Source information: A member of the RNA family "THF (Tetrahydrofolate) riboswitch aptamer" from Lutispora thermophila, 115 nucleotides long. From the family's description: Tetrahydrofolate (THF) riboswitch was first reported for Ames et al. as an RNA motif in 5' untranslated (5'-UTR)regions of folate transport and biosynthesis genes in Firmicutes genomes. A search with the family's covariance model found it, with a score of 77 bits. Rfam links the family to the GO term tetrahydrofolate metabolic process. For this family Rfam cites "Long-range pseudoknot interactions dictate the regulatory response in the tetrahydrofolate riboswitch" (Huang et al., Proc Natl Acad Sci U S A, 2011).
RNA sequence: AGCAGAGUAGAACUUUGUGCGUGAAUCAUUGAUUUGUAGUGCCUUCUGAAUAGGGAGUCGUCAGAAGGACGAAAAGCUUUACAAGCUUACGGUACAAGGUUUGCAUCCCGCUGCU
Numbered sequence: 001a002g003c004a005g006a007g008u009a010g011a012a013c014u015u016u017g018u019g020c021g022u023g024a025a026u027c028a029u030u031g032a033u034u035u036g037u038a039g040u041g042c043c044u045u046c047u048g049a050a051u052a053g054g055g056a057g058u059c060g061u062c063a064g065a066a067g068g069a070c071g072a073a074a075a076g077c078u079u080u081a082c083a084a085g086c087u088u089a090c091g092g093u094a095c096a097a098g099g100u101u102u103g104c105a106u107c108c109c110g111c112u113g114c115u
Stems, first nucleotide, its partner, number of pairs: 001115005010102010020091003039070002042068008053108003057104001074088004